[Rfam]
RNA sequence: GCUGGAAAAAAGCAAAUUAAGGGAAACCUUAAUACGCAAAACCACCGGCCUGUUGAUUGACUAUUUAGUCUAUGGCAGCGGAGUUACCAAG
Numbered sequence: 001g002c003u004g005g006a007a008a009a010a011a012g013c014a015a016a017u018u019a020a021g022g023g024a025a026a027c028c029u030u031a032a033u034a035c036g037c038a039a040a041a042c043c044a045c046c047g048g049c050c051u052g053u054u055g056a057u058u059g060a061c062u063a064u065u066u067a068g069u070c071u072a073u074g075g076c077a078g079c080g081g082a083g084u085u086a087c088c089a090a091g
Base pairs, nucleotide, nucleotide: 012037013036017032018031019030020029021028022027040085041084042083045081046080047079048076049075050074055070056069057068058067059066060065
The family of this 91-nucleotide RNA from Psychromonas ingrahamii is "c-di-GMP-I riboswitch aptamer". Rfam links the family to the GO term cyclic-di-GMP binding. The source organism's lineage runs through Bacteria, Pseudomonadati, Pseudomonadota, Alteromonadales and Psychromonas ingrahamii.